[Rfam]
The family of this 179-nucleotide RNA sequence from Falsibacillus albus is "Lysine riboswitch aptamer". The base pairs follow the family's consensus structure, which is taken from published work.
RNA sequence: AGAUGAGGUAGAGGGCGCAGUGAUUAAGAGUAAGAGAAUGAACGAAGCAGGGAAUUCAUUUUUCAUCUUUGAAAGGAAUCAUUGCCGAAGCUCCAUCAUUCUCUGAUGAUGGAAGCUGGGACUGUAUCCGAAUAGGUGCAGGACUGUCAUAGGAUUUCCUAUGGUGAACUAUCAUUUUG
Numbered sequence: 001a002g003a004u005g006a007g008g009u010a011g012a013g014g015g016c017g018c019a020g021u022g023a024u025u026a027a028g029a030g031u032a033a034g035a036g037a038a039u040g041a042a043c044g045a046a047g048c049a050g051g052g053a054a055u056u057c058a059u060u061u062u063u064c065a066u067c068u069u070u071g072a073a074a075g076g077a078a079u080c081a082u083u084g085c086c087g088a089a090g091c092u093c094c095a096u097c098a099u100u101c102u103c104u105g106a107u108g109a110u111g112g113a114a115g116c117u118g119g120g121a122c123u124g125u126a127u128c129c130g131a132a133u134a135g136g137u138g139c140a141g142g143a144c145u146g147u148c149a150u151a152g153g154a155u156u157u158c159c160u161a162u163g164g165u166g167a168a169c170u171a172u173c174a175u176u177u178u179g
Stems, first nucleotide, its partner, number of pairs: 007173005017085009034070003038066004089117003092113008118145002122141007147164007
Taxonomically the source falls in Falsibacillus (Bacteria, Bacillati, Bacillota, Bacillaceae).
A reference for the family is Mandal et al. (2003), "Riboswitches Control Fundamental Biochemical Pathways in Bacillus subtilis and Other Bacteria", Cell.